[Rfam]
RNA: RT-3 RNA
RNA sequence: UAUCGGCGUACUAGCAGCGGGGGACGUGUCCCCGAAUCGGUGCCGAGGGGAGCAAGCCUCAGCAACUAGCUACCUAGAAAAGGUGGAUUGCUGAAUAAUCACGCGUCGUGUGGAGUCUUGGUAGACUGUUAUCAAGUUCGAAGUAAGUCAGAUCCG
Numbered sequence: 001u002a003u004c005g006g007c008g009u010a011c012u013a014g015c016a017g018c019g020g021g022g023g024a025c026g027u028g029u030c031c032c033c034g035a036a037u038c039g040g041u042g043c044c045g046a047g048g049g050g051a052g053c054a055a056g057c058c059u060c061a062g063c064a065a066c067u068a069g070c071u072a073c074c075u076a077g078a079a080a081a082g083g084u085g086g087a088u089u090g091c092u093g094a095a096u097a098a099u100c101a102c103g104c105g106u107c108g109u110g111u112g113g114a115g116u117c118u119u120g121g122u123a124g125a126c127u128g129u130u131a132u133c134a135a136g137u138u139c140g141a142a143g144u145a146a147g148u149c150a151g152a153u154c155c156g
Stems, first nucleotide, its partner, number of pairs: 003046006011040002014037001020033005048058002059094005071085005107156002110153002113149002116146001118145001119143001124138004